[Rfam]
RNA sequence: GCCCGAAUGAACCUCGAUGGUUCGGGGUGCGGACUUCAAAUCCGUAGGCGACUAGCCGUCGCAGUCGUUCGAUUCGACCUUUCGGGU
Numbered sequence: 001g002c003c004c005g006a007a008u009g010a011a012c013c014u015c016g017a018u019g020g021u022u023c024g025g026g027g028u029g030c031g032g033a034c035u036u037c038a039a040a041u042c043c044g045u046a047g048g049c050g051a052c053u054a055g056c057c058g059u060c061g062c063a064g065u066c067g068u069u070c071g072a073u074u075c076g077a078c079c080u081u082u083c084g085g086g087u
Stems, first nucleotide, its partner, number of pairs: 001087007009079001012027006028046006048062005064078004
Rfam assigns this 87-nucleotide sequence from Diploscapter pachys to the family "Selenocysteine transfer RNA". Lineage of the source: Eukaryota > Opisthokonta > Rhabditida > Rhabditoidea > Diploscapter. The family's consensus secondary structure is taken from published work. Rfam 15.1 lists 4,211 matches to the family in 3,344 species.